[Rfam]
RNA sequence: GGAAGGUUAGCUUAUCUGGUGAUGGCCACUGACUUCAAAUCAGAUGAAAGGGUAGUUGACUACUUUUUGGGGAGUUCGAUUCUCUCACCUUCU
Dot-bracket structure: (((((((....(((((....)))))...((((.......))))...(((((((........)))))))..((((.......)))).)))))))